[Rfam]
RNA sequence: CGAGUAAGCCAGACAGUCGCUGCUGCUAAAAUGCAGGAGAGGAAAGUCGGAGCUCCAUAGGGCAGGGUGCUGGGUAACACCCAGUCAGGGUGACCUGAAGGAAAGUGCAACAGAGAUAUACCGCCUAAGUUUACUUAGGUAAGGGUGGAAAGGUGAGGUAAGAGCUCACCAGCGCACUGGCGACUUUGCGGCUAUGUAAACCCCAUCUGGAGCAAGAUCGAAUAGAGAAGCAUACAGGGAUCGCCCGUCCCGCUUCCGGGUAGUAUCGCUGGAGCCUACUGGUGACAAUAGGCCUAGAUAGAUGACUGUUUAACACAGAACUCCGCUUACAGACUUAGUCGCAUA
Numbered sequence: 001c002g003a004g005u006a007a008g009c010c011a012g013a014c015a016g017u018c019g020c021u022g023c024u025g026c027u028a029a030a031a032u033g034c035a036g037g038a039g040a041g042g043a044a045a046g047u048c049g050g051a052g053c054u055c056c057a058u059a060g061g062g063c064a065g066g067g068u069g070c071u072g073g074g075u076a077a078c079a080c081c082c083a084g085u086c087a088g089g090g091u092g093a094c095c096u097g098a099a100g101g102a103a104a105g106u107g108c109a110a111c112a113g114a115g116a117u118a119u120a121c122c123g124c125c126u127a128a129g130u131u132u133a134c135u136u137a138g139g140u141a142a143g144g145g146u147g148g149a150a151a152g153g154u155g156a157g158g159u160a161a162g163a164g165c166u167c168a169c170c171a172g173c174g175c176a177c178u179g180g181c182g183a184c185u186u187u188g189c190g191g192c193u194a195u196g197u198a199a200a201c202c203c204c205a206u207c208u209g210g211a212g213c214a215a216g217a218u219c220g221a222a223u224a225g226a227g228a229a230g231c232a233u234a235c236a237g238g239g240a241u242c243g244c245c246c247g248u249c250c251c252g253c254u255u256c257c258g259g260g261u262a263g264u265a266u267c268g269c270u271g272g273a274g275c276c277u278a279c280u281g282g283u284g285a286c287a288a289u290a291g292g293c294c295u296a297g298a299u300a301g302a303u304g305a306c307u308g309u310u311u312a313a314c315a316c317a318g319a320a321c322u323c324c325g326c327u328u329a330c331a332g333a334c335u336u337a338g339u340c341g342c343a344u345a
Base pairs, nucleotide, nucleotide: 001341002340003339005337006336007335008334010332012310013309014308015307016306017305018304020039021038023036024035025034026033044328045327046326048325049324050323051322052321053212054211055210056209060246061245062244063243065208066207067206068205069204070084071083072082073081074080085099086097087096088095089094100203101202105201106200107197108196109195121144122143123140124139125138126137127136128135129134152170153169154168155167156166157165172192173190174189175188176187179184216267217266218265219263227256228255229254230253231252237251238250239249240248241247274293275292276291277290278289280287281286